[Rfam]
RNA sequence: CGAGAACCCAUUAAAUCAAGUAAUGUAAUGAUUCAAGGGGUUCUCACAAAC
Numbered sequence: 001c002g003a004g005a006a007c008c009c010a011u012u013a014a015a016u017c018a019a020g021u022a023a024u025g026u027a028a029u030g031a032u033u034c035a036a037g038g039g040g041u042u043c044u045c046a047c048a049a050a051c
Base pairs, nucleotide, nucleotide: 002045003044004043005042006041007040008039009038011036012035014033015032016031017030
Shown here is a 51-nucleotide sequence, a member of the family "Plastid-ccsA-ndhD-1 3UTR RNA".
Clan: Plastid-ccsA_ndhD 3UTR RNA clan.
Rfam's curators write: Plastid-ccsA-ndhD-1 is a non-coding RNA (ncRNA) recognised in plastids. It was found in the three prime untranslated region (3UTR) of ccsA and ndhD genes, its 3UTR location suggests a role in transcript maturation.
On this family, see Stern and Gruissem, Cell 1987: "Control of plastid gene expression: 3' inverted repeats act as mRNA processing and stabilizing elements, but do not terminate transcription".
Pairs were carried over by alignment from the consensus structure, which was predicted with LocARNA.